[Rfam]
RNA sequence: GUUCAUACUUUUCCACAGCUUUCUUGAACUGCAUAUAAUUGUAUGGACAAAAACCCAUUUGCAGUUCAAUAAAGCUGUGGGAAGAUAUGGAGA
Numbered sequence: 001g002u003u004c005a006u007a008c009u010u011u012u013c014c015a016c017a018g019c020u021u022u023c024u025u026g027a028a029c030u031g032c033a034u035a036u037a038a039u040u041g042u043a044u045g046g047a048c049a050a051a052a053a054c055c056c057a058u059u060u061g062c063a064g065u066u067c068a069a070u071a072a073a074g075c076u077g078u079g080g081g082a083a084g085a086u087a088u089g090g091a092g093a
Stems, first nucleotide, its partner, number of pairs: 003090005013080003017076006024069004029064005
Dot-bracket structure: ..(((((.....(((.((((((.((((.(((((..........................))))).)))).)))))).))).....)))))...
RNA: MIR396 microRNA precursor family